A member of the RNA family "Bacterial RNase P class B" from Salimicrobium jeotgali, 375 nucleotides long. The family's RNA type in Rfam is ribozyme. For this family Rfam cites "Ribonuclease P: unity and diversity in a tRNA processing ribozyme" (Frank and Pace, Annu Rev Biochem, 1998).

[Rfam]
RNA sequence: AUGCUGAGGUAAUCGCUGCCGAUGGCAGAGGAAAGUCCAUGCUCGCACAAGCUGAGAUUGCUUGUAGUGUUCGUGCCAGACGAAAUCAUAAGUCUGGGUAGUGCCAAGCACUAACGGCAGAGAAAAGACCUGUGUCCCGGAUGGGAUAUGGUCUGACUAUCUUGAAAGUGCCACAGUGACGGAGCCGAAGUAGAAAUACUUCGGGUGGAACGAGGUAAACCCCUCGAGCGAGCAACCCAAACUUAGGUAGGGGCACUCUUUCGAAGGAAUGAAACGGAGAAAGAGGCCGGCAUCGCCGGCAGAUAGAUGAUUACCACCGGAGUACGAGGUUUGACCACCGCCGGCAGUACAAAGGUACAGAACAUGGCUUACCAG
Number, nucleotide and partner (000 for none) at each position: 001a000002u000003g000004c375005u374006g373007a000008g315009g314010u313011a312012a311013u310014c309015g000016c028017u027018g026019c025020c024021g000022a000023u000024g020025g019026c018027a017028g016029a000030g000031g000032a000033a370034a369035g368036u000037c367038c366039a365040u364041g363042c232043u231044c230045g229046c228047a065048c064049a063050a062051g061052c060053u000054g000055a000056g000057a000058u000059u000060g052061c051062u050063u049064g048065u047066a000067g000068u000069g000070u000071u227072c226073g225074u000075g223076c097077c096078a095079g094080a093081c092082g000083a000084a000085a000086u000087c000088a000089u000090a000091a000092g081093u080094c079095u078096g077097g076098g115099u113100a112101g111102u110103g109104c108105c000106a000107a000108g104109c103110a102111c101112u100113a099114a000115c098116g222117g221118c000119a162120g161121a160122g000123a000124a000125a000126a000127g153128a152129c151130c150131u000132g000133u000134g147135u146136c145137c144138c143139g000140g000141a000142u000143g138144g137145g136146a135147u134148a000149u000150g130151g129152u128153c127154u000155g000156a000157c000158u000159a000160u121161c120162u119163u000164g000165a000166a000167a000168g220169u219170g216171c215172c214173a000174c000175a000176g000177u000178g000179a000180c000181g000182g000183a000184g000185c204186c203187g202188a201189a200190g199191u198192a197193g000194a000195a000196a000197u192198a191199c190200u189201u188202c187203g186204g185205g000206u000207g000208g000209a000210a000211c000212g000213a000214g172215g171216u170217a000218a000219a169220c168221c117222c116223c075224u000225c073226g072227a071228g046229c045230g044231a043232g042233c000234a000235a000236c252237c251238c250239a000240a000241a000242c000243u000244u000245a000246g000247g000248u000249a000250g238251g237252g236253g000254c000255a000256c285257u284258c283259u282260u281261u280262c279263g000264a000265a000266g000267g000268a000269a000270u000271g000272a000273a000274a000275c000276g000277g000278a000279g262280a261281a260282a259283g258284a257285g256286g300287c299288c298289g297290g296291c295292a000293u000294c000295g291296c290297c289298g288299g287300c286301a000302g000303a000304u000305a000306g000307a000308u000309g014310a013311u012312u011313a010314c009315c008316a000317c355318c354319g000320g000321a000322g350323u349324a348325c347326g000327a000328g000329g000330u000331u000332u000333g000334a000335c000336c000337a000338c000339c000340g000341c000342c000343g000344g000345c000346a000347g325348u324349a323350c322351a000352a000353a000354g318355g317356u000357a000358c000359a000360g000361a000362a000363c041364a040365u039366g038367g037368c035369u034370u033371a000372c000373c006374a005375g004